[Rfam]
RNA sequence: UUGGGUGAAAUUCAUGUGGGUAUCACACAUUGAAAAUAGAUCCCACAUAAAGUGGUGAGACCCACAUGAAUUUCACCCAA
Numbered sequence: 001u002u003g004g005g006u007g008a009a010a011u012u013c014a015u016g017u018g019g020g021u022a023u024c025a026c027a028c029a030u031u032g033a034a035a036a037u038a039g040a041u042c043c044c045a046c047a048u049a050a051a052g053u054g055g056u057g058a059g060a061c062c063c064a065c066a067u068g069a070a071u072u073u074c075a076c077c078c079a080a
Base pairs, nucleotide, nucleotide: 001080002079003078004077005076006075007074008073009072010071011070012069013068014067015066016065017064018063023058024057025056026054027053028052030050031049032048
The record is an 80-nucleotide sequence from Medicago truncatula, which matches "MIR5269 microRNA precursor family" in Rfam. Lineage of the source: Eukaryota > Embryophyta > Gunneridae > Fabaceae > Medicago. The family's consensus secondary structure was predicted with RNAalifold.